[Rfam]
RNA sequence: ACGCCGCUCGACCUGACACAACAUUCUGCAGCAAUGUUGUGCAAUGACCUGCAGUGUCGGUCGAGCCGCAU
Dot-bracket structure: (.((.((.(((((......((((((.......)))))).......(((.......)))))))).)).)).)
Numbered sequence: 001a002c003g004c005c006g007c008u009c010g011a012c013c014u015g016a017c018a019c020a021a022c023a024u025u026c027u028g029c030a031g032c033a034a035u036g037u038u039g040u041g042c043a044a045u046g047a048c049c050u051g052c053a054g055u056g057u058c059g060g061u062c063g064a065g066c067c068g069c070a071u
Stems, first nucleotide, its partner, number of pairs: 001071001003069002006066002009063005020038006046058003

Shown here is a 71-nucleotide sequence from Cercospora zeae-maydis, a member of the family "bZIP non canonical Hac1/Xbp1 intron". The match comes from Rfam's covariance-model search (52 bits). Rfam classes the family as a small RNA. Taxonomically the source falls in Cercospora zeae-maydis (Eukaryota, leotiomyceta, dothideomyceta, Dothideomycetes). Rfam's curators write: bZIP intron RNA is a non-canonical intron that was first reported in HAC1 gene in yeast and XBP1 gene in Metazoa.